[Rfam]
RNA sequence: CCAUCUUCAGCAACAGUGAUUGCUAAGACAG
Dot-bracket structure: (..((((.((((((...).)))))))))..)
Rfam assigns this 31-nucleotide RNA from Oreotrochilus melanogaster to the family "Iron response element II". IRE, TFRC, SLC40A1, SDHB, SLC11A2, CDC42BPA, ACO2, ALAS2_H.SAPIENS, CDC14A, EPAS1, ALAS2, qoxD, Hao1, NDUFS1, transferrin, Aconitate. Taxonomically the source falls in Oreotrochilus (Eukaryota, Bilateria, Deuterostomia, Archosauria). A reference for the family is Koeller et al. (1989), "A cytosolic protein binds to structural elements within the iron regulatory region of the transferrin receptor mRNA", Proc Natl Acad Sci U S A. The match comes from Rfam's covariance-model search (31 bits). The base pairs follow the family's consensus structure, which is taken from published work. Rfam classes the family as a cis-regulatory element.